[Rfam]
RNA sequence: UCUUUGAAGCGGCAAGAAUUAGAAGCAGUUUUGGUGUCAGACACACUCACUGACUCACUGCUUCUUGUUUUUCUUCUUCUUCUUCUUCUG
Numbered sequence: 001u002c003u004u005u006g007a008a009g010c011g012g013c014a015a016g017a018a019u020u021a022g023a024a025g026c027a028g029u030u031u032u033g034g035u036g037u038c039a040g041a042c043a044c045a046c047u048c049a050c051u052g053a054c055u056c057a058c059u060g061c062u063u064c065u066u067g068u069u070u071u072u073c074u075u076c077u078u079c080u081u082c083u084u085c086u087u088c089u090g
Base pairs, nucleotide, nucleotide: 008078009077011075012074014072015071016070017069018068019067021065022064023063024062025061026060027059028058029057034044035043036042037041
Shown here is a 90-nucleotide sequence from Caenorhabditis briggsae, a member of the family "mir-268 microRNA precursor family".
The family has 3 seed sequences and 12 matches in Rfam 15.1.
The organism belongs to Caenorhabditis, within Eukaryota.
The base pairs follow the family's consensus structure, which was predicted with RNAalifold.
A search with the family's covariance model found it, with a score of 89 bits.